[Rfam]
RNA: Plastid-atpF group II-D1 intron
Organism: Mikania micrantha
RNA sequence: AAAUAUUUUAUCAAUAUAGAACACUCAUAUCGAUAAAAUGAUAUCGAACCAUG
Dot-bracket structure: ..........((.((((.........)))).))....................
Numbered sequence: 001a002a003a004u005a006u007u008u009u010a011u012c013a014a015u016a017u018a019g020a021a022c023a024c025u026c027a028u029a030u031c032g033a034u035a036a037a038a039u040g041a042u043a044u045c046g047a048a049c050c051a052u053g
Stems, first nucleotide, its partner, number of pairs: 011033002014030004